[Rfam]
RNA sequence: CAGGCUGUGACCCUCUAAAGGGAAGCGCUUUCUGUGGUCAGAAAGAAAAGCAAGUGCUUCCUUUUAGAGGGUUACCGUUUGGGA
Numbered sequence: 001c002a003g004g005c006u007g008u009g010a011c012c013c014u015c016u017a018a019a020g021g022g023a024a025g026c027g028c029u030u031u032c033u034g035u036g037g038u039c040a041g042a043a044a045g046a047a048a049a050g051c052a053a054g055u056g057c058u059u060c061c062u063u064u065u066a067g068a069g070g071g072u073u074a075c076c077g078u079u080u081g082g083g084a
Stems, first nucleotide, its partner, number of pairs: 001081002004078002007075005013069003017065014032050001035049001
Background: The record is an 84-nucleotide RNA from Gorilla gorilla, which matches "mir-515 microRNA precursor family" in Rfam. On this family, see Bentwich et al., Nat Genet 2005: "Identification of hundreds of conserved and nonconserved human microRNAs". Lineage of the source: Eukaryota > Euteleostomi > Eutheria > Simiiformes > Gorilla. The family has 181 seed sequences and 1,056 matches in Rfam 15.1. Gene Ontology terms of the family: RISC complex and miRNA-mediated post-transcriptional gene silencing.